RNA sequence: CGGGGAAAGAAGACCCUGUUGAGCUUGACUCUAGUCUGACUCUGUGAAAAGACAUAGGAGGUGUAGAAUAGGUGGGAGAGCAAUCGCCAGUGAAAUACCACUACUCUUAUCGUUUUUUUACUUAUUCGAUUGUGCGGAGAGGCGCUUCACGGCGCAUUUCUAGACUCAAAGGCUCUCUCCGAGAGCCCGAUCCGGUUCGAUGACACUGUCAGGUUGGGAGUUUGGCUGGGGCGGCACAUCUGUCAAACGAUAACGCAGGUGUCCUAAGGUGAGCUCAAUGAGAACGGAAAUCUCAUGUAGAACAAAAGGGUAAAAGCUCACUUGAUUUUGAUUUUCAGUAUGAAUACAAACUGUGAAAGCAUGGCCUAUCGAUCCUUUAGUCUUUAGGAGUUUUAAGCUAGAGGUGUCAGAAAAGUUACCACAGGGAUAACUGGCUUGUGGCAGCCAAGCGUUCAUAGCGACGUUGCUUUUUGAUCCUUCGAUGUCGGCUCUUCCUAUCAUUGUGAAGCAGAAUUCACCAAGUGUUGGAUUGUUCACCCACUAAUAGGGAACGUGAGCUGGGUUUAGACCGUCGUGAGACAGGUUAGUUUUACCCUA
Dot-bracket structure: ..(((.((......((((.(((((((.((((...((((((...(((((((((((((((((..........(((((..((....))............))))).))))))).))))))))))....((((.....((((....((((....))))................((((.........))))...))))..)))).......))))))....))))..((((.....))).)((((((...........))))))..((....((((((((.((((((.......))))))...))((......))....))))))....(((..((((.......))))..))).(((....))).))..........((((((..((((.......)))))))))).........)))))..))))))........(.(.(.((((((...((.......))...))))))...)).)..........(((((((((((..((..(((((......)))))....)).(((.(.....).))).....)))))..)..)))).).....(((((((....))).))))....))..))).

This 597-nucleotide part of an RNA from Clytia hemisphaerica belongs to the Rfam family "Eukaryotic large subunit ribosomal RNA".
A search with the family's covariance model found it, with a score of 3236 bits.
The base pairs follow the family's consensus structure, which is taken from published work.
The source organism's lineage runs through Eukaryota, Metazoa, Leptothecata, Obeliida and Clytia.